[Rfam]
RNA sequence: GCAGGGGUGAUCCUAGAUGGUUCUGGGGGCGGGCUUCAAACCCGUGGGUGCAGCAAUGCACAGGAGUUCAAUUCUCCCUCACCUGC
Dot-bracket structure: (((((.(.(..((((((....)))))).(((((.......)))))..(((((....))))).((((.......))))).).)))))